[Rfam]
RNA sequence: CGAACAUCGCUCUUACUUCGGAUCGUCCGGCACGUUCCUGCCGGUGAGAGGAACCACCA
Numbered sequence: 001c002g003a004a005c006a007u008c009g010c011u012c013u014u015a016c017u018u019c020g021g022a023u024c025g026u027c028c029g030g031c032a033c034g035u036u037c038c039u040g041c042c043g044g045u046g047a048g049a050g051g052a053a054c055c056a057c058c059a
Stems, first nucleotide, its partner, number of pairs: 010050006027044006

Description:
A member of the RNA family "msiK RNA", 59 nucleotides long. The sequence is in the family's curated seed alignment. The family has 120 seed sequences and 1,374 matches in Rfam 15.1.